RNA sequence: GAUCUCCUAGUGUUUAACACAGGAUAUGUUCUUACACUGACUGUAUACAAAGAGGAGACAAAGUAAACUUACCCCAAACAUACCUCAGUCCAGGCCCUGUGCCUGGUCUGUAUUGUGAAUGGGGAGACAUGG
Numbered sequence: 001g002a003u004c005u006c007c008u009a010g011u012g013u014u015u016a017a018c019a020c021a022g023g024a025u026a027u028g029u030u031c032u033u034a035c036a037c038u039g040a041c042u043g044u045a046u047a048c049a050a051a052g053a054g055g056a057g058a059c060a061a062a063g064u065a066a067a068c069u070u071a072c073c074c075c076a077a078a079c080a081u082a083c084c085u086c087a088g089u090c091c092a093g094g095c096c097c098u099g100u101g102c103c104u105g106g107u108c109u110g111u112a113u114u115g116u117g118a119a120u121g122g123g124g125a126g127a128c129a130u131g132g
Stems, first nucleotide, its partner, number of pairs: 003058006020043003027036003072124005086110003090106006
Dot-bracket structure: ..((((((...........(((....(((....)))....))).........)))))).............(((((.........(((.((((((.....)))))).))).........)))))........
RNA: Small nucleolar RNA SNORA51
Organism: Castor canadensis